Rfam assigns this 64-nucleotide sequence from Danio rerio to the family "mir-375 microRNA precursor family".
RNA sequence: UUUACGUUGAGCCACACGCACAAUACAUGUGGAUUCAGUUUUGUUCGUUCGGCUCGCGUUAAGC
Numbered sequence: 001u002u003u004a005c006g007u008u009g010a011g012c013c014a015c016a017c018g019c020a021c022a023a024u025a026c027a028u029g030u031g032g033a034u035u036c037a038g039u040u041u042u043g044u045u046c047g048u049u050c051g052g053c054u055c056g057c058g059u060u061a062a063g064c
Stems, first nucleotide, its partner, number of pairs: 001063003004059003008056006017047002020044004025039002

The family's consensus secondary structure was predicted with RNAalifold. Gene Ontology terms of the family: miRNA-mediated post-transcriptional gene silencing and RISC complex.